Rfam assigns this 93-nucleotide RNA sequence from Clostridium sp. CAG:169 to the family "Selenocysteine transfer RNA". The family is grouped with related families in Rfam's "tRNA clan". The match comes from Rfam's covariance-model search (68 bits). The family's consensus secondary structure is taken from published work.

RNA sequence: GGGAGUGGAUGGGUGCUGGUGUGCCCUCUGGUCUUCAAAACCAGUAAUUGCAGUUAGUAGCUGCAUAGGUGGGUUCAAUUCCCACACAUUCCC
Number, nucleotide and partner (000 for none) at each position: 001g093002g092003g091004a090005g089006u088007g087008g085009a000010u000011g026012g025013g024014u023015g022016c021017u000018g000019g000020u000021g016022u015023g014024c013025c012026c011027u000028c044029u043030g042031g041032u040033c000034u000035u000036c000037a000038a000039a000040a032041c031042c030043a029044g028045u000046a000047a000048u000049u065050g064051c063052a000053g000054u000055u000056a000057g000058u000059a000060g000061c000062u000063g051064c050065a049066u000067a000068g000069g000070u084071g083072g082073g081074u000075u000076c000077a000078a000079u000080u000081c073082c072083c071084a070085c008086a000087c007088a006089u005090u004091c003092c002093c001